[Rfam]
RNA sequence: AUAUAACAGUUGGCAUGGCUCGAUGCUGCGGAAUCGCCUGUUAUUUACUCAUCAACGGGUUUCAAUUUCCCUUAUCCGUUUGAGUGAU
Numbered sequence: 001a002u003a004u005a006a007c008a009g010u011u012g013g014c015a016u017g018g019c020u021c022g023a024u025g026c027u028g029c030g031g032a033a034u035c036g037c038c039u040g041u042u043a044u045u046u047a048c049u050c051a052u053c054a055a056c057g058g059g060u061u062u063c064a065a066u067u068u069c070c071c072u073u074a075u076c077c078g079u080u081u082g083a084g085u086g087a088u
Base pairs, nucleotide, nucleotide: 005042006041007040008039009038011036013026014025015024016023

Shown here is an 88-nucleotide RNA sequence, a member of the family "RAGATH-35 RNA".
The sequence is in the family's curated seed alignment.
It is annotated as a small RNA.